[Rfam]
RNA sequence: GGUCUCGAGCACCAGUGCGCACGUAAGUGCGCUAAGUCCCGGCUUGCUGGUCGGCAACCCCCCACGUGCGGGGGGUGCCCCGGGGUGACGACCUGGCCCGUGAGGGCAACGACACGCA
Numbered sequence: 001g002g003u004c005u006c007g008a009g010c011a012c013c014a015g016u017g018c019g020c021a022c023g024u025a026a027g028u029g030c031g032c033u034a035a036g037u038c039c040c041g042g043c044u045u046g047c048u049g050g051u052c053g054g055c056a057a058c059c060c061c062c063c064a065c066g067u068g069c070g071g072g073g074g075g076u077g078c079c080c081c082g083g084g085g086u087g088a089c090g091a092c093c094u095g096g097c098c099c100g101u102g103a104g105g106g107c108a109a110c111g112a113c114a115c116g117c118a
Stems, first nucleotide, its partner, number of pairs: 001093004009052001011051006035044002053079003058075003062071002096117001099116004105110001
RNA: SAM (S-adenosyl methionine) riboswitch aptamer
Organism: Georgenia soli